[Rfam]
Description:
MIR4380 microRNA precursor family: an 82-nucleotide sequence from Glycine soja. It scores 84 bits against the family's covariance model. Its family is annotated with miRNA-mediated post-transcriptional gene silencing and RISC complex in the Gene Ontology. The base pairs follow the family's consensus structure, which was predicted with RNAalifold. The source organism's lineage runs through Eukaryota, Embryophyta, Mesangiospermae, eudicotyledons and Glycine subgen. Soja.
RNA sequence: ACAUACGGAUCAACAAUCCGUAUGGUUCAUAUGGAUUAGCAAUCUGUAUGACUAUACAGAUUGCUGAUCCGUAUGUUCCUAA
Numbered sequence: 001a002c003a004u005a006c007g008g009a010u011c012a013a014c015a016a017u018c019c020g021u022a023u024g025g026u027u028c029a030u031a032u033g034g035a036u037u038a039g040c041a042a043u044c045u046g047u048a049u050g051a052c053u054a055u056a057c058a059g060a061u062u063g064c065u066g067a068u069c070c071g072u073a074u075g076u077u078c079c080u081a082a
Base pairs, nucleotide, nucleotide: 001076002075003074004073005072006071007070008069009068010067011066012065014063015062016061017060018059020057021056022055023054024053025052027051028050029049030048031047032046033045034044035043036042037041